[Rfam]
A member of the RNA family "UnaL2 LINE 3' element" from Conger conger, 54 nucleotides long.
RNA sequence: UUUGCUCUCCAUUGUACGUCGCUCUGGAUGAGAGCGUCUGCUAAAUGCCUUGUA
Numbered sequence: 001u002u003u004g005c006u007c008u009c010c011a012u013u014g015u016a017c018g019u020c021g022c023u024c025u026g027g028a029u030g031a032g033a034g035c036g037u038c039u040g041c042u043a044a045a046u047g048c049c050u051u052g053u054a
Base pairs, nucleotide, nucleotide: 013043014041015040016039020036021035022034023033024032025031
Rfam classes the family as a cis-regulatory element.